[Rfam]
RNA sequence: ACGCGGGGACGACCCCGCCGCUCCAUCUCAUCCGGGGACGGCCCC
Numbered sequence: 001a002c003g004c005g006g007g008g009a010c011g012a013c014c015c016c017g018c019c020g021c022u023c024c025a026u027c028u029c030a031u032c033c034g035g036g037g038a039c040g041g042c043c044c045c
Stems, first nucleotide, its partner, number of pairs: 003018006034045004
Shown here is a 45-nucleotide sequence from Novilysobacter concretionis, a member of the family "Guanidine-II riboswitch aptamer (mini-ykkC)".
Gene Ontology term of the family: regulation of gene expression.